The record is a 154-nucleotide sequence from Amborella trichopoda, which matches "MIR8565 microRNA precursor family" in Rfam.

RNA sequence: CUCACACCCAUGUGUGUAGAACCCCAAAUGAUCACUAUUAAAUUUGAUACAGAUCUCUAUAAAGGUUAUCACAUGGUUGUGGGACUUGACUUCUUUAGAGAUCUGUACCAAAUUUAAUGGUGAUUAUUUGGGGUCCUACACACAUGGGUGUGGG
Numbered sequence: 001c002u003c004a005c006a007c008c009c010a011u012g013u014g015u016g017u018a019g020a021a022c023c024c025c026a027a028a029u030g031a032u033c034a035c036u037a038u039u040a041a042a043u044u045u046g047a048u049a050c051a052g053a054u055c056u057c058u059a060u061a062a063a064g065g066u067u068a069u070c071a072c073a074u075g076g077u078u079g080u081g082g083g084a085c086u087u088g089a090c091u092u093c094u095u096u097a098g099a100g101a102u103c104u105g106u107a108c109c110a111a112a113u114u115u116a117a118u119g120g121u122g123a124u125u126a127u128u129u130g131g132g133g134u135c136c137u138a139c140a141c142a143c144a145u146g147g148g149u150g151u152g153g154g
Base pairs, nucleotide, nucleotide: 002153003152004151005150006149007148008147009146010145011144012143013142015140016139017138018137019136021134022133023132024131025130026129027128028127030125031124032123034121035120036119037118038117039116040115041114042113043112044111045110046109048107049106050105051104052103053102054101055100056099057098058097059096061094063092064091065090066089067088068087069082070081071080072079073078
The match comes from Rfam's covariance-model search (146 bits).